[Rfam]
RNA sequence: AUUCGUUCUCAGGGCGGGGUGAAAAUCCCCACCGGCGGUAAGGGGUUCAGUUCCCAAGCCCGCGAGCGCCUUCGGAAGCCAAAGGCAUCGGAAGGGUCAGCAGAUCCGGUGCAACUCCGGAGCCGACGGUCAUAGUCCGGAUGAAAGAGAAUGAGG
Number, nucleotide and partner (000 for none) at each position: 001a000002u000003u154004c153005g152006u151007u150008c149009u148010c147011a000012g000013g000014g000015c000016g000017g029018g028019g027020u000021g000022a000023a000024a000025a000026u000027c019028c018029c017030c000031a136032c135033c125034g124035g063036c062037g061038g060039u000040a000041a000042g000043g000044g000045g000046u000047u000048c000049a000050g000051u000052u000053c000054c000055c000056a000057a000058g123059c122060c038061c037062g036063c035064g000065a000066g101067c100068g000069c000070c000071u000072u000073c000074g000075g000076a000077a000078g000079c000080c000081a000082a000083a000084g000085g000086c000087a000088u000089c000090g000091g000092a000093a000094g000095g000096g000097u000098c000099a000100g067101c066102a000103g000104a000105u121106c120107c119108g118109g117110u000111g000112c000113a000114a000115c000116u000117c109118c108119g107120g106121a105122g059123c058124c034125g033126a000127c139128g138129g137130u000131c000132a000133u000134a000135g032136u031137c129138c128139g127140g000141a000142u000143g000144a000145a000146a000147g010148a009149g008150a007151a006152u005153g004154a003155g000156g000
Rfam assigns this 156-nucleotide RNA sequence from Paenirhizobium daejeonense to the family "FMN riboswitch aptamer (RFN element)". The family's consensus secondary structure is taken from published work. The source organism's lineage runs through Bacteria, Pseudomonadati, Alphaproteobacteria, Rhizobiaceae and Paenirhizobium. It scores 118 bits against the family's covariance model.